[Rfam]
RNA: Glycine riboswitch aptamer
Organism: Arthrobacter woluwensis
RNA sequence: CGAUCCGCGGCGGGAGAGUCCUGCGAACGGGUAUUACGCAGGCGCCGUAGGAGCAAAACCUCCCCAGGAAUCUCUCAGGCCCCCGUACCGCCGCUCCGAG
Numbered sequence: 001c002g003a004u005c006c007g008c009g010g011c012g013g014g015a016g017a018g019u020c021c022u023g024c025g026a027a028c029g030g031g032u033a034u035u036a037c038g039c040a041g042g043c044g045c046c047g048u049a050g051g052a053g054c055a056a057a058a059c060c061u062c063c064c065c066a067g068g069a070a071u072c073u074c075u076c077a078g079g080c081c082c083c084c085g086u087a088c089c090g091c092c093g094c095u096c097c098g099a100g
Stems, first nucleotide, its partner, number of pairs: 007094007020042006044080003047076001051074003